This 67-nucleotide RNA sequence from Myotis lucifugus belongs to the Rfam family "mir-302 microRNA precursor family". NCBI's taxonomy places the organism under Eukaryota, Euteleostomi, Dipnotetrapodomorpha, Theria, Myotis. On this family, see Mineno et al., Nucleic Acids Res 2006: "The expression profile of microRNAs in mouse embryos". Rfam 15.1 lists 2,090 matches to the family in 516 species.

[Rfam]
RNA sequence: CCUCCACUUUAACAUGGAAAUGCUCUCUGUGACCUAAGCAGUAAGUGCUUCCAUGUUUUAGUAGAGG
Numbered sequence: 001c002c003u004c005c006a007c008u009u010u011a012a013c014a015u016g017g018a019a020a021u022g023c024u025c026u027c028u029g030u031g032a033c034c035u036a037a038g039c040a041g042u043a044a045g046u047g048c049u050u051c052c053a054u055g056u057u058u059u060a061g062u063a064g065a066g067g
Base pairs, nucleotide, nucleotide: 001067002066003065006062007061008060011057012056013055014054015053016052017051018050019049021047022046023045024044027041028040